[Rfam]
RNA sequence: CAUUGUUCUCGGGGCGGGGUGCAAUUCCCCACCGGCGGUAAUCAGGCGCGUCAUGCCCUGUAGCCCGCGAGCGUUCGUGCAGUGCCGCGCGAAGUCAGCAGACCCGGUGUGAUCCCGGGGCCGACGGUCAUAGUCCGGAUGAAAGAGAACGGGA
Numbered sequence: 001c002a003u004u005g006u007u008c009u010c011g012g013g014g015c016g017g018g019g020u021g022c023a024a025u026u027c028c029c030c031a032c033c034g035g036c037g038g039u040a041a042u043c044a045g046g047c048g049c050g051u052c053a054u055g056c057c058c059u060g061u062a063g064c065c066c067g068c069g070a071g072c073g074u075u076c077g078u079g080c081a082g083u084g085c086c087g088c089g090c091g092a093a094g095u096c097a098g099c100a101g102a103c104c105c106g107g108u109g110u111g112a113u114c115c116c117g118g119g120g121c122c123g124a125c126g127g128u129c130a131u132a133g134u135c136c137g138g139a140u141g142a143a144a145g146a147g148a149a150c151g152g153g154a
Base pairs, nucleotide, nucleotide: 003152004151005150006149007148008147009146010145017029018028019027031134032133033123034122035068036067037066038065063121064120071099072098103119104118105117106116107115125137126136127135
RNA: FMN riboswitch aptamer (RFN element)
Organism: Herbaspirillum sp. YR522